[Rfam]
RNA: MIR2680 microRNA precursor family
RNA sequence: GUAGGGUCUAGACCUGGCAUAUCUUCAUAGGACCAUGCAAAAAUAUCCGGAUAUUCCCGGAGGAGCUGGAUGAUCUUACUUUUAACCUCUUCCCCUAGAGCAGCACCGAUCUUGAUUUCCCGUUUGUUCUCCUCGGUACCUAUGUUGAUAAGCUCAAUCUCUUCCUGA
Numbered sequence: 001g002u003a004g005g006g007u008c009u010a011g012a013c014c015u016g017g018c019a020u021a022u023c024u025u026c027a028u029a030g031g032a033c034c035a036u037g038c039a040a041a042a043a044u045a046u047c048c049g050g051a052u053a054u055u056c057c058c059g060g061a062g063g064a065g066c067u068g069g070a071u072g073a074u075c076u077u078a079c080u081u082u083u084a085a086c087c088u089c090u091u092c093c094c095c096u097a098g099a100g101c102a103g104c105a106c107c108g109a110u111c112u113u114g115a116u117u118u119c120c121c122g123u124u125u126g127u128u129c130u131c132c133u134c135g136g137u138a139c140c141u142a143u144g145u146u147g148a149u150a151a152g153c154u155c156a157a158u159c160u161c162u163u164c165c166u167g168a
Base pairs, nucleotide, nucleotide: 002167003166004165005164006163010160011159012158016154017153018152020150021149022148023147026144027143028142029141030140031139032137033136034135040130042128043127044126045125048122049121050119051118052102054100055099056098059096060095062093063092064091065090068087069086071084072083073082